This 587-nucleotide part of an RNA from Spiroplasma taiwanense belongs to the Rfam family "Bacterial large subunit ribosomal RNA". Its family is annotated with structural constituent of ribosome and ribosome in the Gene Ontology. NCBI's taxonomy places the organism under Bacteria, Mollicutes, Entomoplasmatales, Spiroplasmataceae, Spiroplasma taiwanense. On this family, see Cannone et al., BMC Bioinformatics 2002: "The comparative RNA web (CRW) site: an online database of comparative sequence and structure information for ribosomal, intron, and other RNAs".

RNA sequence: CCCGCAACUAGACGGAAAGACCCCGUGGAGCUUUACUAUAACUUAAUAUUGAAUUUUGGUGUAACAUGUAGAGGAUAGGUGGGAGACUUUGAAGCGGUCACGCUAGUGAUCGUGGAGUCAUCCUUGGAAUACCACCCUUGUUAUAUUGAGGUUCUAACCUAGGUCCGUUAUCCGGAUCAGGGACAGUGUUUGGUGGGUAGUUUGACUGGGGCGGUCGCCUCCUAAAAUGUAACGGAGGCGCUCAAAGGUACCCUCAGUACGGUUGGAAAUCGUACGAAGAGCGCAAAGGUAUAAGGGUGCUUAACUGCGAGACUUACAAGUCGAACAGAUGCGAAAGCAGGACUUAGUGAUCCGGCGGUCCCGUGUGGAAGGGCCGUCGCUCAACGGAUAAAAGUUACCCCGGGGAUAACAGGCUGAUCUCCCCCAAGAGUUCACAUCGACGGGGAGGUUUGGCACCUCGAUGUCGGCUCAUCGCAUCCUGGAGCUGUAGUCGGUUCCAAGGGUUGGGCUGUUCGCCCAUUAAAGCGGUACGCGAGCUGGGUUCAGAACGUCGUGAGACAGUUUGGUCCCUAUCUGUUGUGGGCGUA
Numbered sequence: 001c002c003c004g005c006a007a008c009u010a011g012a013c014g015g016a017a018a019g020a021c022c023c024c025g026u027g028g029a030g031c032u033u034u035a036c037u038a039u040a041a042c043u044u045a046a047u048a049u050u051g052a053a054u055u056u057u058g059g060u061g062u063a064a065c066a067u068g069u070a071g072a073g074g075a076u077a078g079g080u081g082g083g084a085g086a087c088u089u090u091g092a093a094g095c096g097g098u099c100a101c102g103c104u105a106g107u108g109a110u111c112g113u114g115g116a117g118u119c120a121u122c123c124u125u126g127g128a129a130u131a132c133c134a135c136c137c138u139u140g141u142u143a144u145a146u147u148g149a150g151g152u153u154c155u156a157a158c159c160u161a162g163g164u165c166c167g168u169u170a171u172c173c174g175g176a177u178c179a180g181g182g183a184c185a186g187u188g189u190u191u192g193g194u195g196g197g198u199a200g201u202u203u204g205a206c207u208g209g210g211g212c213g214g215u216c217g218c219c220u221c222c223u224a225a226a227a228u229g230u231a232a233c234g235g236a237g238g239c240g241c242u243c244a245a246a247g248g249u250a251c252c253c254u255c256a257g258u259a260c261g262g263u264u265g266g267a268a269a270u271c272g273u274a275c276g277a278a279g280a281g282c283g284c285a286a287a288g289g290u291a292u293a294a295g296g297g298u299g300c301u302u303a304a305c306u307g308c309g310a311g312a313c314u315u316a317c318a319a320g321u322c323g324a325a326c327a328g329a330u331g332c333g334a335a336a337g338c339a340g341g342a343c344u345u346a347g348u349g350a351u352c353c354g355g356c357g358g359u360c361c362c363g364u365g366u367g368g369a370a371g372g373g374c375c376g377u378c379g380c381u382c383a384a385c386g387g388a389u390a391a392a393a394g395u396u397a398c399c400c401c402g403g404g405g406a407u408a409a410c411a412g413g414c415u416g417a418u419c420u421c422c423c424c425c426a427a428g429a430g431u432u433c434a435c436a437u438c439g440a441c442g443g444g445g446a447g448g449u450u451u452g453g454c455a456c457c458u459c460g461a462u463g464u465c466g467g468c469u470c471a472u473c474g475c476a477u478c479c480u481g482g483a484g485c486u487g488u489a490g491u492c493g494g495u496u497c498c499a500a501g502g503g504u505u506g507g508g509c510u511g512u513u514c515g516c517c518c519a520u521u522a523a524a525g526c527g528g529u530a531c532g533c534g535a536g537c538u539g540g541g542u543u544c545a546g547a548a549c550g551u552c553g554u555g556a557g558a559c560a561g562u563u564u565g566g567u568c569c570c571u572a573u574c575u576g577u578u579g580u581g582g583g584c585g586u587a
Stems, first nucleotide, its partner, number of pairs: 001583008010575003014570002022404004027400002029396005035201004042193002045190004051154016068137001078136005085119003094113008158181003162178006204216004217239006240385001242342002248300006254280002257275006281290002305328003311322003330339003353379007361372002413454003417451001418448007428438002465540001466538004470532001471529005478503002481498006505519005546564004550559003